Rfam assigns this 194-nucleotide RNA sequence from Anopheles gambiae to the family "drz-agam-2-2 ribozyme". The source organism's lineage runs through Eukaryota, Bilateria, Allotriocarida, Hexapoda and Anopheles gambiae. The match comes from Rfam's covariance-model search (132 bits). The base pairs follow the family's consensus structure, which is taken from published work.
RNA sequence: GAACGCGGAUGCUCUGCAAUCGGAUGGGAUCCGAAGCGCCUUGAUGGAUAAUACAGGCUCUCGCAUCCAAAUCCUAUUCCGACACGUCUUUGUCGUGCAGAGUGGUAACGUGUGCCAUCACAUAUCCAAGCUUGGGUACACGGACUUGACCCAACCCCUUGGACGAAUGGUGGCAUAUGGCGAACCAGGAGGGG
Dot-bracket structure: ..........(((((((....(((((.((.((.......................))...)).)))))...[[[[.[[.[...(((.[[....))))))))))]]...((((((((.((....((.(....((((((...........))))))..(....)..).)))).))))))))........]]]]]]]